[Rfam]
RNA sequence: CUCUGUGUACACAUGAGACACAGGGCGGAAAGAG
Numbered sequence: 001c002u003c004u005g006u007g008u009a010c011a012c013a014u015g016a017g018a019c020a021c022a023g024g025g026c027g028g029a030a031a032g033a034g
Stems, first nucleotide, its partner, number of pairs: 001025008
A member of the RNA family "L31-Firmicutes ribosomal protein leader" from Paenibacillus sp. IHBB 10380, 34 nucleotides long. The literature on the family includes a 2020 paper in BMC Microbiol by Eckert and Weinberg, "Discovery of 20 novel ribosomal leader candidates in bacteria and archaea". Its Rfam clan is "Ribosomal Protein L31 Leader clan". Taxonomically the source falls in Paenibacillus (Bacteria, Bacillota, Caryophanales, Paenibacillaceae).